Description:
The family of this 72-nucleotide sequence from Betta splendens is "mir-551 microRNA precursor family".
RNA sequence: UGCUUUUAGAAACCAAGUGUGGAUGCGGCCUGAAAAACAAAGUAGGCGACCCAUCCUUGGUUUCUGAGAUCU
Numbered sequence: 001u002g003c004u005u006u007u008a009g010a011a012a013c014c015a016a017g018u019g020u021g022g023a024u025g026c027g028g029c030c031u032g033a034a035a036a037a038c039a040a041a042g043u044a045g046g047c048g049a050c051c052c053a054u055c056c057u058u059g060g061u062u063u064c065u066g067a068g069a070u071c072u
Stems, first nucleotide, its partner, number of pairs: 002071001004069004009064006016057002021052002024049001028047004

The family's consensus secondary structure was predicted with RNAalifold. Gene Ontology terms of the family: miRNA-mediated post-transcriptional gene silencing and RISC complex. Taxonomically the source falls in Betta (Eukaryota, Metazoa, Craniata, Actinopteri).